This 80-nucleotide RNA from Anabas testudineus belongs to the Rfam family "mir-92 microRNA precursor family". The family has 23 seed sequences and 1,347 matches in Rfam 15.1. For this family Rfam cites "miRNPs: a novel class of ribonucleoproteins containing numerous microRNAs" (Mourelatos et al., Genes Dev, 2002). Pairs were carried over by alignment from the consensus structure, which was predicted with PFOLD. It scores 77 bits against the family's covariance model. From the family's description: This family represents the microRNA precursor mir-92. Human miR-92 has two predicted hairpin precursor sequences: mir-92-1 on chromosome 13 and mir-92-2 on chromosome X. miR-92 has also been cloned from mouse embryonic stem cells. The mature sequence is excised from the 3' arm of the hairpin. Its Rfam clan is "mir-92 microRNA precursor clan".
[Rfam]
RNA sequence: CUUUCUGUGCAGGUUGGGAGAGGUAGCAAUGCUCUGUAUGUGUAUGUGGUAUUGCACUUGUCCCGGCCUGUUGAGGAUGU
Numbered sequence: 001c002u003u004u005c006u007g008u009g010c011a012g013g014u015u016g017g018g019a020g021a022g023g024u025a026g027c028a029a030u031g032c033u034c035u036g037u038a039u040g041u042g043u044a045u046g047u048g049g050u051a052u053u054g055c056a057c058u059u060g061u062c063c064c065g066g067c068c069u070g071u072u073g074a075g076g077a078u079g080u
Base pairs, nucleotide, nucleotide: 004076005075006074009071010070011069012068013067014066016064017063018062019061022058023057024056026055027054028053029052030051031050032049033048